[Rfam]
RNA sequence: CGACCGGGACGACCCGGCCCCGGGUUCAACAACGCGCCGGGACGACCCGG
Numbered sequence: 001c002g003a004c005c006g007g008g009a010c011g012a013c014c015c016g017g018c019c020c021c022g023g024g025u026u027c028a029a030c031a032a033c034g035c036g037c038c039g040g041g042a043c044g045a046c047c048c049g050g
Stems, first nucleotide, its partner, number of pairs: 002019001004017005037050005

Guanidine-II riboswitch aptamer (mini-ykkC): a 50-nucleotide RNA sequence from Roseospira goensis. Simpler in structure and has fewer highly conserved nucleotide positions than the ykkC-yxkD leader. Despite this each of its two stem-loop structures directly bind free guanidine. Therefore, mini-ykkC RNA motif represents a distinct class of guanidine-sensing RNAs. Its crystal structure was also determined. Lineage of the source: Bacteria > Pseudomonadati > Alphaproteobacteria > Rhodospirillales > Roseospira. Pairs were carried over by alignment from the consensus structure, which is taken from published work.